[Rfam]
RNA sequence: CCAGUUGAUGAUGAUGAGAUGGUUCAAUUUAUCCUAACUAGUUUGGAUUUCGACUACAAUCCUUUUGUCUCGUCAAUUCUUGGGCGUGUUGAUUCGGUUUCUCUGAGUGAAUUAUACUCUCAACUCCUGGCAUAUGAUA
Numbered sequence: 001c002c003a004g005u006u007g008a009u010g011a012u013g014a015u016g017a018g019a020u021g022g023u024u025c026a027a028u029u030u031a032u033c034c035u036a037a038c039u040a041g042u043u044u045g046g047a048u049u050u051c052g053a054c055u056a057c058a059a060u061c062c063u064u065u066u067g068u069c070u071c072g073u074c075a076a077u078u079c080u081u082g083g084g085c086g087u088g089u090u091g092a093u094u095c096g097g098u099u100u101c102u103c104u105g106a107g108u109g110a111a112u113u114a115u116a117c118u119c120u121c122a123a124c125u126c127c128u129g130g131c132a133u134a135u136g137a138u139a
Stems, first nucleotide, its partner, number of pairs: 004138004088108003092104001

A member of the RNA family "Small nucleolar RNA Z247" from Panicum miliaceum, 139 nucleotides long. By type it is a C/D-box small nucleolar RNA. The family's consensus secondary structure was predicted with PFOLD. The literature on the family includes a 2003 paper in Nucleic Acids Res by Chen et al., "The high diversity of snoRNAs in plants: identification and comparative study of 120 snoRNA genes from Oryza sativa". Rfam links the family to the GO terms nucleolus and RNA processing.